A member of the RNA family "Potassium channel RNA editing signal" from Scleropages formosus, 114 nucleotides long.
Its family is annotated with adenosine to inosine editing in the Gene Ontology.
The organism belongs to Scleropages, within Eukaryota.
Rfam's curators write: This family represents a group of sequences related to the human potassium channel Kv1.1 hairpin element which directs the efficient modification of an adenosine to inosine by an adenosine deaminase acting on RNA (ADAR). The ADAR modification causes an isoleucine/valine recoding event which lies in the ion-conducting pore of the potassium channel. It is thought that this editing event targets the process of fast inactivation and allows a more rapid recovery from inactivation at negative potentials.
Rfam classes the family as a cis-regulatory element.

RNA sequence: CUGGGCUAUGGGGACAUGUACCCAGUUACAUGGUCAGGGAUGCUGGUGGGAGCACUGUGCGCUUUGGCCGGUGUGUUAACCAUCGCCAUGCCCGUCCCUGUCAUAGUCAACAAU
Numbered sequence: 001c002u003g004g005g006c007u008a009u010g011g012g013g014a015c016a017u018g019u020a021c022c023c024a025g026u027u028a029c030a031u032g033g034u035c036a037g038g039g040a041u042g043c044u045g046g047u048g049g050g051a052g053c054a055c056u057g058u059g060c061g062c063u064u065u066g067g068c069c070g071g072u073g074u075g076u077u078a079a080c081c082a083u084c085g086c087c088a089u090g091c092c093c094g095u096c097c098c099u100g101u102c103a104u105a106g107u108c109a110a111c112a113a114u
Stems, first nucleotide, its partner, number of pairs: 002113001004111001008107002011104001013102004018097001020095002037077002040074001049063002